[Rfam]
Nucleotides: 076
Base pairs, nucleotide, nucleotide: 004073005072006071008069010067011066012065013064014063015062016061017060018059023056024055025054026053027052028051029050030049031048032047
Number, partner (000 for none) and nucleotide at each position: 001000u002000c003000u004073g005072u006071g007000g008069u009000u010067g011066u012065a013064a014063a015062c016061a017060u018059c019000c020000c021000c022000g023056a024055c025054u026053g027052g028051a029050a030049g031048c032047u033000g034000u035000a036000a037000a038000a039000c040000a041000g042000a043000a044000c045000u046000a047032a048031g049030c050029u051028u052027u053026c054025a055024g056023u057000c058000a059018g060017a061016u062015g063014u064013u065012u066011g067010c068000u069008a070000c071006u072005a073004c074000c075000a076000g
This 76-nucleotide sequence from Myotis davidii belongs to the Rfam family "mir-30 microRNA precursor family". Rfam's curators write: This family consists of the mammalian microRNA (miRNA) precursor mir-30a. Animal miRNAs are transcribed as ~70nt precursors and subsequently processed by the Dicer enzyme to give a ~22nt product. The family's consensus secondary structure was predicted with PFOLD.